[Rfam]
RNA sequence: AAAACGGUUUUUUUUAAAACCACAAAUCUUAUAAAAAACAAAUCUCU
Numbered sequence: 001a002a003a004a005c006g007g008u009u010u011u012u013u014u015u016a017a018a019a020c021c022a023c024a025a026a027u028c029u030u031a032u033a034a035a036a037a038a039c040a041a042a043u044c045u046c047u
Stems, first nucleotide, its partner, number of pairs: 006021006

Histone 3' UTR stem-loop: a 47-nucleotide RNA sequence from Clytia hemisphaerica. The base pairs follow the family's consensus structure, which is taken from published work. A reference for the family is Zhang et al. (2014), "Molecular mechanisms for the regulation of histone mRNA stem-loop-binding protein by phosphorylation", Proc Natl Acad Sci U S A.